[Rfam]
RNA sequence: UGUUCUAUUAAAAUCAUUCAGGGCCUUACUUAAGACCCGGUGUACAAUUUUUGGAGCCCUGUCGCUUGCGGCAGGGUA
Numbered sequence: 001u002g003u004u005c006u007a008u009u010a011a012a013a014u015c016a017u018u019c020a021g022g023g024c025c026u027u028a029c030u031u032a033a034g035a036c037c038c039g040g041u042g043u044a045c046a047a048u049u050u051u052u053g054g055a056g057c058c059c060u061g062u063c064g065c066u067u068g069c070g071g072c073a074g075g076g077u078a
Stems, first nucleotide, its partner, number of pairs: 021038003025034003056077009
RNA: SmY spliceosomal RNA
Organism: Caenorhabditis briggsae